[Rfam]
RNA sequence: AUUAAAUAUAAACUCCGAUUUAGUUUAACCUAAGGUAUUAAAUAGAUGCUAUGGAAACUAAACGAUAGGGUUUAUGGGGAAACCGAUAGGCCUCCUGGUGGAAAGGAGUAAUACAGUCUUUUUG
Numbered sequence: 001a002u003u004a005a006a007u008a009u010a011a012a013c014u015c016c017g018a019u020u021u022a023g024u025u026u027a028a029c030c031u032a033a034g035g036u037a038u039u040a041a042a043u044a045g046a047u048g049c050u051a052u053g054g055a056a057a058c059u060a061a062a063c064g065a066u067a068g069g070g071u072u073u074a075u076g077g078g079g080a081a082a083c084c085g086a087u088a089g090g091c092c093u094c095c096u097g098g099u100g101g102a103a104a105g106g107a108g109u110a111a112u113a114c115a116g117u118c119u120u121u122u123u124g
Stems, first nucleotide, its partner, number of pairs: 004117001012109005019062007029054002034050006068093008077084002094101002
RNA: Molybdenum/Tungsten riboswitch aptamer (Moco RNA motif)
Organism: Candidatus Syntrophocurvum alkaliphilum